[Rfam]
RNA: FMN riboswitch aptamer (RFN element)
RNA sequence: AAUAAUCUUCAGGGCGGGGCGAAGUUCCCCACCGGCGGUAAAGCCCGCGAGCCGUAAAGGCAGAUUCGGUUAGAUCCCGAAGCCGACAGUAAAGUCUGGAUAAAAGAAGAUGUGA
Numbered sequence: 001a002a003u004a005a006u007c008u009u010c011a012g013g014g015c016g017g018g019g020c021g022a023a024g025u026u027c028c029c030c031a032c033c034g035g036c037g038g039u040a041a042a043g044c045c046c047g048c049g050a051g052c053c054g055u056a057a058a059g060g061c062a063g064a065u066u067c068g069g070u071u072a073g074a075u076c077c078c079g080a081a082g083c084c085g086a087c088a089g090u091a092a093a094g095u096c097u098g099g100a101u102a103a104a105a106g107a108a109g110a111u112g113u114g115a
Stems, first nucleotide, its partner, number of pairs: 005111006017029003031095002033085002035048004043083002051061003065081005087098003